[Rfam]
RNA sequence: ACGUAACGUACGGGGGUCAUUGUAGAAGCGUGCUCGUUGCGACCCCUGCCAGCCCUUUACAGGGCUGCAAUUCUACA
Numbered sequence: 001a002c003g004u005a006a007c008g009u010a011c012g013g014g015g016g017u018c019a020u021u022g023u024a025g026a027a028g029c030g031u032g033c034u035c036g037u038u039g040c041g042a043c044c045c046c047u048g049c050c051a052g053c054c055c056u057u058u059a060c061a062g063g064g065c066u067g068c069a070a071u072u073c074u075a076c077a
Stems, first nucleotide, its partner, number of pairs: 013046006021077007028040003050067007
The record is a 77-nucleotide RNA from Parnassius apollo, which matches "Mammalian CPEB3 ribozyme" in Rfam.
Rfam describes the family as follows. The mammalian CPEB3 ribozyme is a self cleaving RNA located in the second intron of the CPEB3 gene which belongs to a family of genes regulating messenger RNA polyadenylation. This ribozyme is highly conserved and found only in mammals.
A search with the family's covariance model found it, with a score of 55 bits.